[Rfam]
RNA sequence: AUAAAUCUAGGCCCCAUACCCCUAGACUCCCUAGAUUUGAAGGUGAGUUACCCCCAUCACUCACCUUCUUUU
Number, nucleotide and partner (000 for none) at each position: 001a000002u000003a000004a037005a036006u035007c034008u033009a032010g000011g000012c000013c000014c000015c000016a000017u000018a000019c000020c000021c000022c000023u000024a000025g000026a000027c000028u000029c000030c000031c000032u009033a008034g007035a006036u005037u004038u000039g000040a000041a000042g065043g064044u063045g062046a061047g060048u059049u000050a057051c000052c000053c000054c000055c000056a000057u050058c000059a048060c047061u046062c045063a044064c043065c042066u000067u000068c000069u000070u000071u000072u000